Rfam assigns this 373-nucleotide RNA sequence from Alkalibacterium sp. 20 to the family "Bacterial RNase P class B". By type it is a ribozyme. Pairs were carried over by alignment from the consensus structure, which is taken from published work. It scores 326 bits against the family's covariance model. Gene Ontology terms of the family: ribonuclease P activity, dimeric ribonuclease P complex and tRNA processing. From the family's description: Ribonuclease P (RNase P) is a ubiquitous endoribonuclease, found in archaea, bacteria and eukarya as well as chloroplasts and mitochondria. Its best characterised activity is the generation of mature 5'-ends of tRNAs by cleaving the 5'-leader elements of precursor-tRNAs. For this family Rfam cites "Ribonuclease P: unity and diversity in a tRNA processing ribozyme" (Frank and Pace, Annu Rev Biochem, 1998).

RNA sequence: CAUCACGGAUAAUCGCACAGCUCAAUAGAGUUGUGAGGAAAGUCCAUGCUCACACAAGCUGCGAUGCUUGUAGUGUUCGUGCGCAGCGAAACAAUAAGCUGCGGCUCCCAGGUAUGGGAUGACGGCAGGAAAAAGAGCUACGGGGAAACCUAUGCUUGAGUACCCUUGAAAGUGCCACAGUGACGAAGCAAACGUGGAAACGCGUUUGGUGGAACGCGGUAAACCCCUCGAGUGAGCAACCCAAACAUUGGUAGGGGCACUUUUCUCCUGGAAUUGAACAGAGAGAAGAGGCAGGGCUUAAUGCUCGUGCAGACAGAUGGUUAUCUCGGAUAAGACUUCACCGUUUUAUCUAGACAAAACAUGGCUUACAGUG
Numbered sequence: 001c002a003u004c005a006c007g008g009a010u011a012a013u014c015g016c017a018c019a020g021c022u023c024a025a026u027a028g029a030g031u032u033g034u035g036a037g038g039a040a041a042g043u044c045c046a047u048g049c050u051c052a053c054a055c056a057a058g059c060u061g062c063g064a065u066g067c068u069u070g071u072a073g074u075g076u077u078c079g080u081g082c083g084c085a086g087c088g089a090a091a092c093a094a095u096a097a098g099c100u101g102c103g104g105c106u107c108c109c110a111g112g113u114a115u116g117g118g119a120u121g122a123c124g125g126c127a128g129g130a131a132a133a134a135g136a137g138c139u140a141c142g143g144g145g146a147a148a149c150c151u152a153u154g155c156u157u158g159a160g161u162a163c164c165c166u167u168g169a170a171a172g173u174g175c176c177a178c179a180g181u182g183a184c185g186a187a188g189c190a191a192a193c194g195u196g197g198a199a200a201c202g203c204g205u206u207u208g209g210u211g212g213a214a215c216g217c218g219g220u221a222a223a224c225c226c227c228u229c230g231a232g233u234g235a236g237c238a239a240c241c242c243a244a245a246c247a248u249u250g251g252u253a254g255g256g257g258c259a260c261u262u263u264u265c266u267c268c269u270g271g272a273a274u275u276g277a278a279c280a281g282a283g284a285g286a287a288g289a290g291g292c293a294g295g296g297c298u299u300a301a302u303g304c305u306c307g308u309g310c311a312g313a314c315a316g317a318u319g320g321u322u323a324u325c326u327c328g329g330a331u332a333a334g335a336c337u338u339c340a341c342c343g344u345u346u347u348a349u350c351u352a353g354a355c356a357a358a359a360c361a362u363g364g365c366u367u368a369c370a371g372u373g
Base pairs, nucleotide, nucleotide: 004373005372006371007369008325009324010323011322012321013320014319016035017034018033019032020031021030040367041366042365044364045363046362047361048360049236050235051234052233053232054071055070056069057068058067059066077231078230079229081227082103083102084101085100086099087098104123105121106119107118108117109116110115124226125225127166128165129164135157136156137155138154142151143150144149172224173223174220175219176218189208190207191206192205193204194203195202196201240256241255242254260290261289262288263287264286265285266284291310292309293308295306296305328351329350330349331348332347333346334345335344336343